[Rfam]
RNA sequence: AUGUGUAAGGAUCGCCCCCAGUCAGCGCGUUGCGCCCACUGGGGCUCUACUG
Numbered sequence: 001a002u003g004u005g006u007a008a009g010g011a012u013c014g015c016c017c018c019c020a021g022u023c024a025g026c027g028c029g030u031u032g033c034g035c036c037c038a039c040u041g042g043g044g045c046u047c048u049a050c051u052g
Base pairs, nucleotide, nucleotide: 016044017043018042019041020040021039022038025035026034027033028032
RNA: ffh sRNA